Annotation: The record is a 216-nucleotide RNA sequence from Pseudomonas panipatensis, which matches "PhrS" in Rfam. Rfam classes the family as a small RNA. The literature on the family includes a 2006 paper in Nucleic Acids Res by Livny et al., "Identification of 17 Pseudomonas aeruginosa sRNAs and prediction of sRNA-encoding genes in 10 diverse pathogens using the bioinformatic tool sRNAPredict2". Pairs were carried over by alignment from the consensus structure, which was predicted with CMfinder.
[Rfam]
RNA sequence: AUCAACCAAGCAGACAGGGCAACAGGAGGCCAGCAUCAUGUUCAUCGACGAGGUGGUUCUUGCCGGAGUGAUUACGGUUGGCCUGAUGGUCCUGUUUUUCGGUGGUGUCGGAUAUUUCAUCUGGAAGGACUCGCAUCGUCACUGAGACGACGAUCCUUUCGGAUUACACAGAGCACGCAAGGCACUUAGGGCGACUUCGAGUCGCCCGUUUUUUUU
Numbered sequence: 001a002u003c004a005a006c007c008a009a010g011c012a013g014a015c016a017g018g019g020c021a022a023c024a025g026g027a028g029g030c031c032a033g034c035a036u037c038a039u040g041u042u043c044a045u046c047g048a049c050g051a052g053g054u055g056g057u058u059c060u061u062g063c064c065g066g067a068g069u070g071a072u073u074a075c076g077g078u079u080g081g082c083c084u085g086a087u088g089g090u091c092c093u094g095u096u097u098u099u100c101g102g103u104g105g106u107g108u109c110g111g112a113u114a115u116u117u118c119a120u121c122u123g124g125a126a127g128g129a130c131u132c133g134c135a136u137c138g139u140c141a142c143u144g145a146g147a148c149g150a151c152g153a154u155c156c157u158u159u160c161g162g163a164u165u166a167c168a169c170a171g172a173g174c175a176c177g178c179a180a181g182g183c184a185c186u187u188a189g190g191g192c193g194a195c196u197u198c199g200a201g202u203c204g205c206c207c208g209u210u211u212u213u214u215u216u
Stems, first nucleotide, its partner, number of pairs: 001103003053063003080091004173183002176181001189207007
Dot-bracket structure: (((.................................................(((.....)))................((((....)))).........))).....................................................................((.(....))).....(((((((.....))))))).........